Rfam assigns this 86-nucleotide RNA sequence from Denticeps clupeoides to the family "mir-135 microRNA precursor family". The family's consensus secondary structure was predicted with PFOLD. Lineage of the source: Eukaryota > Opisthokonta > Osteoglossocephalai > Clupeiformes > Denticeps.
[Rfam]
RNA sequence: GCACUGCUGUGUUUUAUGGCUUUCUAUUCCUAUGCGAUUCGUUUGGGCCAUCACAUAGGGUUCAAAGCCAUUGGGUACAGAGUGGA
Numbered sequence: 001g002c003a004c005u006g007c008u009g010u011g012u013u014u015u016a017u018g019g020c021u022u023u024c025u026a027u028u029c030c031u032a033u034g035c036g037a038u039u040c041g042u043u044u045g046g047g048c049c050a051u052c053a054c055a056u057a058g059g060g061u062u063c064a065a066a067g068c069c070a071u072u073g074g075g076u077a078c079a080g081a082g083u084g085g086a
Stems, first nucleotide, its partner, number of pairs: 002085001005082001007080008016071008026062001028060007036052002